[Rfam]
The record is a 45-nucleotide RNA sequence from Guaiacum angustifolium, which matches "Plastid-rpl16 group II-D1 intron" in Rfam. Rfam links the family to the GO term Group II intron splicing. Plastid-rpl16 is a non-coding RNA (ncRNA) recognised in plastids. It was recognised in and intronic region of a ribosome rpl16 gene.
RNA sequence: AAGAGCCGAGAGCCAAUAAAGACUAAGAAGGUUGGCUCAAAACAA
Number, nucleotide and partner (000 for none) at each position: 001a000002a000003g000004a000005g000006c000007c000008g000009a000010g038011a037012g036013c035014c034015a033016a032017u031018a000019a000020a000021g000022a000023c000024u000025a000026a000027g000028a000029a000030g000031g017032u016033u015034g014035g013036c012037u011038c010039a000040a000041a000042a000043c000044a000045a000